[Rfam]
RNA sequence: GUUUUUUUUCUAAAGAAGAAAUAAAAAAGCAGCCACAAUCUAUCACAGACCCCGAAAACUGGCGCCCCUCAUCCCUGCCAGCAGAGUGGUGGGGGCUCCAGGUUGGGGGAU
Numbered sequence: 001g002u003u004u005u006u007u008u009u010c011u012a013a014a015g016a017a018g019a020a021a022u023a024a025a026a027a028a029g030c031a032g033c034c035a036c037a038a039u040c041u042a043u044c045a046c047a048g049a050c051c052c053c054g055a056a057a058a059c060u061g062g063c064g065c066c067c068c069u070c071a072u073c074c075c076u077g078c079c080a081g082c083a084g085a086g087u088g089g090u091g092g093g094g095g096c097u098c099c100a101g102g103u104u105g106g107g108g109g110a111u
Stems, first nucleotide, its partner, number of pairs: 006017003021043003025039001050108006059101004064096005070091004075086002